Shown here is a 218-nucleotide RNA from Proteiniclasticum sediminis, a member of the family "raiA RNA". A search with the family's covariance model found it, with a score of 170 bits. Lineage of the source: Bacteria > Bacillati > Eubacteriales > Clostridiaceae > Proteiniclasticum. The family's RNA type in Rfam is riboswitch.
RNA sequence: GAAAGUUACGUUUGUAGUUGCUCGGGAGUUUUUCCCGAUAGUCCAUGCCAGUCGCAGGCAAAAGGAUCCACGUAAGUCAGCCAAAGUGCUGUCAAUCAUGGUGCGGUUUAGAUGUUAGUCCUGCCAGAAAUGAGAGGGUUAGUAGUGAGAGGUUAAUUCCGGGUAGCAAAAGCUCCAGCAGGCGAGUGUGGGGUCAAAGACUAGGUCAAGUAACUUUU
Numbered sequence: 001g002a003a004a005g006u007u008a009c010g011u012u013u014g015u016a017g018u019u020g021c022u023c024g025g026g027a028g029u030u031u032u033u034c035c036c037g038a039u040a041g042u043c044c045a046u047g048c049c050a051g052u053c054g055c056a057g058g059c060a061a062a063a064g065g066a067u068c069c070a071c072g073u074a075a076g077u078c079a080g081c082c083a084a085a086g087u088g089c090u091g092u093c094a095a096u097c098a099u100g101g102u103g104c105g106g107u108u109u110a111g112a113u114g115u116u117a118g119u120c121c122u123g124c125c126a127g128a129a130a131u132g133a134g135a136g137g138g139u140u141a142g143u144a145g146u147g148a149g150a151g152g153u154u155a156a157u158u159c160c161g162g163g164u165a166g167c168a169a170a171a172g173c174u175c176c177a178g179c180a181g182g183c184g185a186g187u188g189u190g191g192g193g194u195c196a197a198a199g200a201c202u203a204g205g206u207c208a209a210g211u212a213a214c215u216u217u218u
Stems, first nucleotide, its partner, number of pairs: 001218009012209003015203005045189003048058001050108007067101002072096001076093001078091004099196001120182005125132002136175004145167002151160002